[Rfam]
RNA sequence: UUUCACAACACCCUCAUUGUACAUGCUGUGUAUUUUCUGAUCACACACACAGCGCAUGCAAUGUGGACUUUGUGGAG
Numbered sequence: 001u002u003u004c005a006c007a008a009c010a011c012c013c014u015c016a017u018u019g020u021a022c023a024u025g026c027u028g029u030g031u032a033u034u035u036u037c038u039g040a041u042c043a044c045a046c047a048c049a050c051a052g053c054g055c056a057u058g059c060a061a062u063g064u065g066g067a068c069u070u071u072g073u074g075g076a077g
Stems, first nucleotide, its partner, number of pairs: 012066002015063007024054001026052006

The family of this 77-nucleotide sequence from Acipenser ruthenus is "mir-460 microRNA precursor family". Gene Ontology terms of the family: RISC complex and miRNA-mediated post-transcriptional gene silencing. On this family, see Xu et al., FEBS Lett 2006: "Identification of microRNAs from different tissues of chicken embryo and adult chicken". The base pairs follow the family's consensus structure, which was predicted with RNAalifold.